Background:
Shown here is an 88-nucleotide RNA sequence from Acinetobacter gerneri, a member of the family "t44 RNA". The match comes from Rfam's covariance-model search (67 bits). By type it is a small RNA. The literature on the family includes a 2002 paper in Nucleic Acids Res by Tjaden et al., "Transcriptome analysis of Escherichia coli using high-density oligonucleotide probe arrays". From the family's description: This family consists of a number of bacterial RNA genes of between 135 and 170 bases in length. The t44 gene has been identified in several species of enteric bacteria but homologs have also been identified in Pseudomonas and Coxiella species. The organism belongs to Acinetobacter gerneri, within Bacteria. Pairs were carried over by alignment from the consensus structure, which was predicted with LocARNA.

[Rfam]
RNA sequence: AAUGGUGAAACUAAAAUCCGCACAUAUAUCGUCACAUUACUCUGGGUGCCUUUUAAAGGUGGAGAAUGCGGAUAUAUGGAGGCCUAAC
Numbered sequence: 001a002a003u004g005g006u007g008a009a010a011c012u013a014a015a016a017u018c019c020g021c022a023c024a025u026a027u028a029u030c031g032u033c034a035c036a037u038u039a040c041u042c043u044g045g046g047u048g049c050c051u052u053u054u055a056a057a058g059g060u061g062g063a064g065a066a067u068g069c070g071g072a073u074a075u076a077u078g079g080a081g082g083c084c085u086a087a088c
Stems, first nucleotide, its partner, number of pairs: 023078008035068004040064004048060005
Dot-bracket structure: ......................((((((((....((((.((((....(((((...)))))))))))))..))))))))..........